[Rfam]
Shown here is a 262-nucleotide RNA sequence from Lachnoclostridium sp. An76, a member of the family "Bacterial large signal recognition particle RNA". The base pairs follow the family's consensus structure, which is taken from published work. Its family is annotated with SRP-dependent cotranslational protein targeting to membrane, signal sequence recognition and signal recognition particle, plasma membrane targeting in the Gene Ontology.
RNA sequence: UCGUGCAGCCGGGGUGUUAGCGGUACCUUGUACCUGCAAUCCGCUAUAGCAGGGGUGAUAUUGCGCAGAGGGCGGCAGCCGGCAGAGCUGCCCCCGGAAAGUGGCGUUGAUGUCCGGGUCUCACGCGACGGGAACCUGUGAACCGUGUCAGGCCGGGAACGGAGCAGCACUAAGCAGGAGCUCCCGGGUGCCGUGAGGGUGCCUGGGCUGAGUUAACUGCCGGGGUAACGUCUGUUGGCCAAGUUCGAAGCGCAAUGCACGC
Numbered sequence: 001u002c003g004u005g006c007a008g009c010c011g012g013g014g015u016g017u018u019a020g021c022g023g024u025a026c027c028u029u030g031u032a033c034c035u036g037c038a039a040u041c042c043g044c045u046a047u048a049g050c051a052g053g054g055g056u057g058a059u060a061u062u063g064c065g066c067a068g069a070g071g072g073c074g075g076c077a078g079c080c081g082g083c084a085g086a087g088c089u090g091c092c093c094c095c096g097g098a099a100a101g102u103g104g105c106g107u108u109g110a111u112g113u114c115c116g117g118g119u120c121u122c123a124c125g126c127g128a129c130g131g132g133a134a135c136c137u138g139u140g141a142a143c144c145g146u147g148u149c150a151g152g153c154c155g156g157g158a159a160c161g162g163a164g165c166a167g168c169a170c171u172a173a174g175c176a177g178g179a180g181c182u183c184c185c186g187g188g189u190g191c192c193g194u195g196a197g198g199g200u201g202c203c204u205g206g207g208c209u210g211a212g213u214u215a216a217c218u219g220c221c222g223g224g225g226u227a228a229c230g231u232c233u234g235u236u237g238g239c240c241a242a243g244u245u246c247g248a249a250g251c252g253c254a255a256u257g258c259a260c261g262c
Stems, first nucleotide, its partner, number of pairs: 002261006008056003011029008033053005061255006070246004078239008089227002093224005101217002103214003112208008120197006126188001129186005135178005145170004153162003
Dot-bracket structure: .(((((((((((((((((...))))))))...(((((...........))))))))....((((((...((((....((((((((...((..(((((...(((((......(((((((((((((((..(((((.(((((.....((((....(((....)))....))))...)))))...))))).)...))))))...))))))))...))).))..))))).))....))))))))...))))...)))))))))))).
A search with the family's covariance model found it, with a score of 188 bits. The family is grouped with related families in Rfam's "SRP clan". The signal recognition particle (SRP) is a universally conserved ribonucleoprotein involved in the co-translational targeting of proteins to membranes. The family's RNA type in Rfam is non-coding RNA gene.